Shown here is an 80-nucleotide sequence from Xiphophorus maculatus, a member of the family "mir-194 microRNA precursor family".
Rfam links the family to the GO terms RISC complex and miRNA-mediated post-transcriptional gene silencing.
A reference for the family is Michael et al. (2003), "Reduced accumulation of specific microRNAs in colorectal neoplasia", Mol Cancer Res.
Lineage of the source: Eukaryota > Craniata > Teleostomi > Poeciliinae > Xiphophorus.
The family has 46 seed sequences and 936 matches in Rfam 15.1.
RNA sequence: GGGUCUCACCAGCUGUAACAGCAUCUCCAUUUGGAAAAACUGUGGUAUCCAGUGGAGCUGCUGUUAUCUGUGGAGGGAUG
Numbered sequence: 001g002g003g004u005c006u007c008a009c010c011a012g013c014u015g016u017a018a019c020a021g022c023a024u025c026u027c028c029a030u031u032u033g034g035a036a037a038a039a040c041u042g043u044g045g046u047a048u049c050c051a052g053u054g055g056a057g058c059u060g061c062u063g064u065u066a067u068c069u070g071u072g073g074a075g076g077g078a079u080g
Base pairs, nucleotide, nucleotide: 009073010072011071015067016066017065018064019063020062021061022060025057026056027055028054029053030052032051033050034049